[Rfam]
RNA sequence: GGGGCGUUAGCUCAGCGGGAGAGCACUUGCAUGGCAUGCAAGGGGUCGGGGGUUCGAAUCCCCCACGCUCCA
Numbered sequence: 001g002g003g004g005c006g007u008u009a010g011c012u013c014a015g016c017g018g019g020a021g022a023g024c025a026c027u028u029g030c031a032u033g034g035c036a037u038g039c040a041a042g043g044g045g046u047c048g049g050g051g052g053u054u055c056g057a058a059u060c061c062c063c064c065a066c067g068c069u070c071c072a
Base pairs, nucleotide, nucleotide: 001071002070003069004068005067006066007065010024011023012022013021026042027041028040029039030038048064049063050062051061052060
tRNA: a 72-nucleotide RNA from Thermovirga lienii. The family's consensus secondary structure is taken from published work. A reference for the family is Lowe and Eddy (1997), "tRNAscan-SE: a program for improved detection of transfer RNA genes in genomic sequence", Nucleic Acids Res. The source organism's lineage runs through Bacteria, Thermotogati, Synergistales, Thermovirga and Thermovirga lienii.